[Rfam]
RNA sequence: UAGUGUAGUUUUGAAUGGAUUCAUCCGCGAGAUGACGUGACUGUUUUACCUAGGACGAGGACAUGGCAUCCUAUUACCAGCCAUCGUACGAAAUUAAUAGGAUGCCAUGACCUCAUCCUAGAUGGAACAACCACGUCAUCUCACGGGUAAAUCCAUUCAUCAAUAGUGUGGUU
Numbered sequence: 001u002a003g004u005g006u007a008g009u010u011u012u013g014a015a016u017g018g019a020u021u022c023a024u025c026c027g028c029g030a031g032a033u034g035a036c037g038u039g040a041c042u043g044u045u046u047u048a049c050c051u052a053g054g055a056c057g058a059g060g061a062c063a064u065g066g067c068a069u070c071c072u073a074u075u076a077c078c079a080g081c082c083a084u085c086g087u088a089c090g091a092a093a094u095u096a097a098u099a100g101g102a103u104g105c106c107a108u109g110a111c112c113u114c115a116u117c118c119u120a121g122a123u124g125g126a127a128c129a130a131c132c133a134c135g136u137c138a139u140c141u142c143a144c145g146g147g148u149a150a151a152u153c154c155a156u157u158c159a160u161c162a163a164u165a166g167u168g169u170g171g172u173u
Stems, first nucleotide, its partner, number of pairs: 001168002004165003008161001010159001014157003018153004023148003027144001029142002032139005038133002042129004048123001051120002054117002060111001062109001066105011083094002
The record is a 173-nucleotide sequence from Oryza meridionalis, which matches "MIR807 microRNA precursor family" in Rfam. NCBI's taxonomy places the organism under Eukaryota, Magnoliopsida, Poales, Oryzoideae, Oryza. The literature on the family includes a 2006 paper in FEBS Lett by Luo et al., "Rice embryogenic calli express a unique set of microRNAs, suggesting regulatory roles of microRNAs in plant post-embryogenic development".